[Rfam]
RNA sequence: CUGGCACCGGUUCACGUCCGCGCAUCCCGCGCCGACGACCCGGCGCC
Numbered sequence: 001c002u003g004g005c006a007c008c009g010g011u012u013c014a015c016g017u018c019c020g021c022g023c024a025u026c027c028c029g030c031g032c033c034g035a036c037g038a039c040c041c042g043g044c045g046c047c
Stems, first nucleotide, its partner, number of pairs: 003047003007043004015037004020032004
Record summary
A member of the RNA family "L31-Actinobacteria ribosomal protein leader" from Nocardioides sp. Leaf285, 47 nucleotides long. On this family, see Eckert and Weinberg, BMC Microbiol 2020: "Discovery of 20 novel ribosomal leader candidates in bacteria and archaea". It scores 57 bits against the family's covariance model. By type it is a cis-regulatory leader. Lineage of the source: Bacteria > Actinomycetes > Propionibacteriales > Nocardioidaceae > Nocardioides. The family's consensus secondary structure is taken from published work.